Overview: The record is a 94-nucleotide RNA sequence from Tepidibacter thalassicus, which matches "RT-9 RNA" in Rfam.
RNA sequence: GUCCGAUACGUCUACGGAUUUAUCGGCAAGUCCUUGUUUAGAAUUUCGAGGGAGAAUAAUUCCUUCACCUAAAGGUGUAAAUACAUGAACAAUG
Numbered sequence: 001g002u003c004c005g006a007u008a009c010g011u012c013u014a015c016g017g018a019u020u021u022a023u024c025g026g027c028a029a030g031u032c033c034u035u036g037u038u039u040a041g042a043a044u045u046u047c048g049a050g051g052g053a054g055a056a057u058a059a060u061u062c063c064u065u066c067a068c069c070u071a072a073a074g075g076u077g078u079a080a081a082u083a084c085a086u087g088a089a090c091a092a093u094g
Base pairs, nucleotide, nucleotide: 003026004025005024006023007022008021010019011018012017066077067076068075069074
Pairs were carried over by alignment from the consensus structure, which is taken from published work.